[Rfam]
The record is a 597-nucleotide RNA, which matches "ROOL RNA" in Rfam. From the family's description: Firmicutes, Fusobacteria (1 example), Tenericutes (1 example). It is one of the family's seed sequences. The family's consensus secondary structure is taken from published work. It is annotated as a small RNA.
RNA sequence: AUCUGAAUAUCAUCAUAAGUCAAUCCCUAUGCACAAGCUUCUGGCAGAGGUUUAGGGGACGUGGCGUGAUUCAGAGCUGUCAGCAAUUCCCGAUAGGGGUUGUAUGGGCAACAAUGCUUCUGGGGCUGUGGCGACAUGGCUUCGGGGAGUGCGUAACACACUUGGCACAACUGAAGGGCUGCGGGCGGGAUUGGCUUGGGAUGAACGGAAAAGGCAGGACAUUUGGGGCUGGAGUCCUACAAUAGACGCUCCCUGUGGGAGAAUAACCCUUGAAUAUCAUAUCCGUUGCAGGGGUAUGGGAUAGAGGGAAUUGCAGAAAGGACUCCUGUGCGGUUGAGACUUGCGAAAGCGGGUCUAUAAAGCCUGAUGUCCGUAUGGUGGCACAAAGCCGUGCAAAUUUCUUAAUUGGAUUAUAAUUAUAUUCUGAAUGCUGUGUCGCCAUUCUGGGUGAAGUUCCCAGACACGCUUGGUCGAGAGAUUCUGCAAGAAGUAUUGGGGUAGCUCCCCUGUGCUCAGACUUGCGGACGUGGUGGCUGAAAAUGAUUCCGAUUCCAAGCUGGUCUUACGGCGAAGGUCGUGGCUUGUGGUGAUGUUCAG
Number, nucleotide and partner (000 for none) at each position: 001a000002u000003c000004u000005g000006a000007a594008u000009a000010u000011c000012a000013u000014c587015a000016u000017a000018a583019g582020u000021c580022a000023a000024u000025c057026c056027c055028u054029a053030u000031g000032c000033a000034c000035a000036a051037g000038c049039u048040u047041c000042u000043g000044g000045c000046a000047g040048a039049g038050g000051u036052u000053u029054a028055g027056g026057g025058g000059a000060c183061g182062u181063g180064g179065c178066g000067u000068g000069a000070u000071u000072c000073a000074g000075a118076g117077c116078u113079g112080u111081c000082a105083g103084c102085a101086a000087u000088u099089c098090c097091c096092g000093a000094u000095a000096g091097g090098g089099g088100u000101u085102g084103u083104a000105u082106g000107g000108g000109c000110a000111a080112c079113a078114a000115u000116g077117c076118u075119u146120c145121u144122g143123g142124g000125g140126c139127u138128g137129u136130g135131g000132c000133g000134a000135c130136a129137u128138g127139g126140c125141u000142u123143c122144g121145g120146g119147g000148a000149g168150u167151g166152c165153g000154u000155a000156a000157c000158a000159c000160a000161c000162u000163u000164g000165g152166c151167a150168c149169a000170a000171c000172u000173g000174a000175a000176g000177g000178g065179c064180u063181g062182c061183g060184g000185g000186c000187g000188g000189g578190a000191u000192u560193g000194g558195c000196u556197u555198g000199g000200g000201a000202u000203g000204a000205a000206c000207g000208g547209a000210a545211a000212a000213g544214g535215c000216a000217g372218g371219a370220c369221a000222u000223u000224u367225g000226g365227g364228g363229c362230u361231g326232g325233a324234g323235u322236c321237c000238u000239a000240c000241a000242a000243u000244a000245g000246a000247c000248g000249c261250u260251c259252c258253c000254u000255g000256u000257g000258g252259g251260a250261g249262a000263a000264u000265a000266a000267c308268c307269c306270u305271u304272g000273a000274a000275u000276a000277u299278c298279a297280u296281a000282u294283c293284c292285g000286u316287u315288g314289c313290a000291g000292g284293g283294g282295u000296a280297u279298g278299g277300g000301a000302u000303a000304g271305a270306g269307g268308g267309a000310a000311u000312u000313g289314c288315a287316g286317a000318a000319a000320g000321g236322a235323c234324u233325c232326c231327u000328g000329u393330g392331c391332g390333g389334u000335u000336g000337a000338g000339a354340c353341u352342u351343g350344c000345g000346a000347a000348a000349g000350c343351g342352g341353g340354u339355c000356u000357a000358u000359a000360a000361a230362g229363c228364c227365u226366g000367a224368u000369g220370u219371c218372c217373g000374u000375a000376u441377g000378g000379u000380g000381g436382c435383a434384c433385a432386a000387a000388g000389c333390c332391g331392u330393g329394c000395a000396a000397a000398u000399u000400u000401c000402u000403u000404a000405a000406u000407u000408g000409g000410a000411u000412u000413a000414u000415a000416a000417u000418u000419a000420u000421a000422u000423u517424c516425u515426g514427a000428a000429u000430g000431c000432u385433g384434u383435g382436u381437c000438g000439c000440c000441a376442u000443u000444c533445u460446g000447g458448g457449u000450g000451a000452a000453g000454u000455u000456c000457c448458c447459a000460g445461a000462c529463a528464c527465g479466c000467u000468u000469g000470g000471u477472c000473g000474a000475g000476a000477g471478a000479u465480u000481c000482u524483g000484c000485a000486a520487g519488a000489a000490g513491u000492a510493u509494u000495g507496g506497g505498g504499u000500a000501g000502c000503u000504c498505c497506c496507c495508u000509g493510u492511g000512c000513u490514c426515a425516g424517a423518c000519u487520u486521g000522c000523g000524g482525a000526c000527g464528u463529g462530g000531u000532g000533g444534c000535u214536g000537a000538a000539a000540a000541u000542g000543a000544u213545u210546c000547c208548g000549a000550u000551u000552c000553c000554a000555a197556g196557c000558u194559g000560g192561u000562c000563u000564u000565a000566c577567g576568g575569c574570g000571a000572a000573g000574g569575u568576c567577g566578u189579g000580g021581c000582u019583u018584g000585u000586g000587g014588u000589g000590a000591u000592g000593u000594u007595c000596a000597g000